[Rfam]
RNA sequence: GGUCAAGAGUGCCAGCGCGAAGUCCCGGCUAGCUGGCCGGCAACCCUCCAGCACGGUGGGGUGCCCCCGGGAAGAGGACCCGGCUGCGGUGCUGCGGCAAGCGUGCUCU
Numbered sequence: 001g002g003u004c005a006a007g008a009g010u011g012c013c014a015g016c017g018c019g020a021a022g023u024c025c026c027g028g029c030u031a032g033c034u035g036g037c038c039g040g041c042a043a044c045c046c047u048c049c050a051g052c053a054c055g056g057u058g059g060g061g062u063g064c065c066c067c068c069g070g071g072a073a074g075a076g077g078a079c080c081c082g083g084c085u086g087c088g089g090u091g092c093u094g095c096g097g098c099a100a101g102c103g104u105g106c107u108c109u
Base pairs, nucleotide, nucleotide: 001080002079003078004077009038011037012036013035014034015033016032021030022029039065040064041063044061045060046059048056049055083098084097085096086095087094088093
RNA: SAM (S-adenosyl methionine) riboswitch aptamer
Organism: Streptomyces sp. 8K308